[Rfam]
This 91-nucleotide sequence from Panicum miliaceum belongs to the Rfam family "Small nucleolar RNA R64/Z200 family". The literature on the family includes a 2002 paper in Mol Cell Biol by Galardi et al., "Purified box C/D snoRNPs are able to reproduce site-specific 2'-O-methylation of target RNA in vitro". The organism belongs to Panicum sect. Panicum, within Eukaryota. The family's RNA type in Rfam is C/D-box small nucleolar RNA. Gene Ontology terms of the family: nucleolus and RNA processing. The match comes from Rfam's covariance-model search (75 bits).

RNA sequence: CAAAUGCUAUGAUGAACCAUGAAAUAUAUUCGCAUGUCAGACUUCAGAGAUGCUAUUGCAUUGAUGAGAAGAUGCUUCAUGUUCUGAGCUG
Numbered sequence: 001c002a003a004a005u006g007c008u009a010u011g012a013u014g015a016a017c018c019a020u021g022a023a024a025u026a027u028a029u030u031c032g033c034a035u036g037u038c039a040g041a042c043u044u045c046a047g048a049g050a051u052g053c054u055a056u057u058g059c060a061u062u063g064a065u066g067a068g069a070a071g072a073u074g075c076u077u078c079a080u081g082u083u084c085u086g087a088g089c090u091g
Stems, first nucleotide, its partner, number of pairs: 001091002006089002049062004